[Rfam]
RNA: T-box leader
Organism: Jeotgalibacillus soli
RNA sequence: AGUAAAUCGAUGAUCAGGAUUAGUACAGUUUGCAUGGCAGCAAAGAGAGCCUGUGUAUGGUGAAAACAGGACUGACAGCGGCUGGAAUGGACCUGAGAGAGUUACCUUGAAUCAAGUAGAGGGAGCCGAUUCAUCCACGUUAAAGGAUGAGGCUAUCAAUAGCCGCAGAGUGGAAGCGUGUUACACGCUUUAACGUGAGGUGGUACCGCGGGAAGUUCCCGUCCUCCGU
Numbered sequence: 001a002g003u004a005a006a007u008c009g010a011u012g013a014u015c016a017g018g019a020u021u022a023g024u025a026c027a028g029u030u031u032g033c034a035u036g037g038c039a040g041c042a043a044a045g046a047g048a049g050c051c052u053g054u055g056u057a058u059g060g061u062g063a064a065a066a067c068a069g070g071a072c073u074g075a076c077a078g079c080g081g082c083u084g085g086a087a088u089g090g091a092c093c094u095g096a097g098a099g100a101g102u103u104a105c106c107u108u109g110a111a112u113c114a115a116g117u118a119g120a121g122g123g124a125g126c127c128g129a130u131u132c133a134u135c136c137a138c139g140u141u142a143a144a145g146g147a148u149g150a151g152g153c154u155a156u157c158a159a160u161a162g163c164c165g166c167a168g169a170g171u172g173g174a175a176g177c178g179u180g181u182u183a184c185a186c187g188c189u190u191u192a193a194c195g196u197g198a199g200g201u202g203g204u205a206c207c208g209c210g211g212g213a214a215g216u217u218c219c220c221g222u223c224c225u226c227c228g229u
Stems, first nucleotide, its partner, number of pairs: 007100002015095004026084005038074003050070005102125002105122004127139002173191007197226004208222005